Description: The record is a 137-nucleotide RNA from Paspalum vaginatum, which matches "Small nucleolar RNA snoR111" in Rfam. The base pairs follow the family's consensus structure, which was predicted with WAR. On this family, see Marker et al., Curr Biol 2002: "Experimental RNomics: identification of 140 candidates for small non-messenger RNAs in the plant Arabidopsis thaliana". The family has 6 seed sequences and 533 matches in Rfam 15.1. It scores 48 bits against the family's covariance model.

[Rfam]
RNA sequence: AUAACGUGCGGGGGCACGAUUGCACGAACGCCUCCCGUGCCACGCCGCUUUAGCGAAGACAGGAUAGAUCGAUGCGUCAAGAAAUCGUUUCUGUUGCCAUGGCUUCAGUAGGCAAUACGAUUGUUGCUUGAGCACAG
Numbered sequence: 001a002u003a004a005c006g007u008g009c010g011g012g013g014g015c016a017c018g019a020u021u022g023c024a025c026g027a028a029c030g031c032c033u034c035c036c037g038u039g040c041c042a043c044g045c046c047g048c049u050u051u052a053g054c055g056a057a058g059a060c061a062g063g064a065u066a067g068a069u070c071g072a073u074g075c076g077u078c079a080a081g082a083a084a085u086c087g088u089u090u091c092u093g094u095u096g097c098c099a100u101g102g103c104u105u106c107a108g109u110a111g112g113c114a115a116u117a118c119g120a121u122u123g124u125u126g127c128u129u130g131a132g133c134a135c136a137g
Base pairs, nucleotide, nucleotide: 006050008048009047010046011045013041014040015039016038017037018036076133077132079129080128081127084121085120086119087118093116094115095114096113097112098111